[Rfam]
RNA sequence: AUGUUAAUAGAGGAAAUGCCAUAGACAGCAGGUUGCUUUCCCACAAAAGCGGAAAGUGUAAAAGUGUUUGCAAACUUCCCUGCCGAGGUAAUGUGAUUUAGCAGUCGGAUAAUGACAAUUACCCCUUUAUGUCUAUGUGCAUUGAGGGGUUUUAUUAUUUCAGU
Numbered sequence: 001a002u003g004u005u006a007a008u009a010g011a012g013g014a015a016a017u018g019c020c021a022u023a024g025a026c027a028g029c030a031g032g033u034u035g036c037u038u039u040c041c042c043a044c045a046a047a048a049g050c051g052g053a054a055a056g057u058g059u060a061a062a063a064g065u066g067u068u069u070g071c072a073a074a075c076u077u078c079c080c081u082g083c084c085g086a087g088g089u090a091a092u093g094u095g096a097u098u099u100a101g102c103a104g105u106c107g108g109a110u111a112a113u114g115a116c117a118a119u120u121a122c123c124c125c126u127u128u129a130u131g132u133c134u135a136u137g138u139g140c141a142u143u144g145a146g147g148g149g150u151u152u153u154a155u156u157a158u159u160u161c162a163g164u
Stems, first nucleotide, its partner, number of pairs: 028083005122149006129142003
The family of this 164-nucleotide RNA from Acetivibrio thermocellus is "Ribosomal protein L10 leader". A search with the family's covariance model found it, with a score of 47 bits. Taxonomically the source falls in Acetivibrio thermocellus (Bacteria, Bacillati, Bacillota, Clostridia).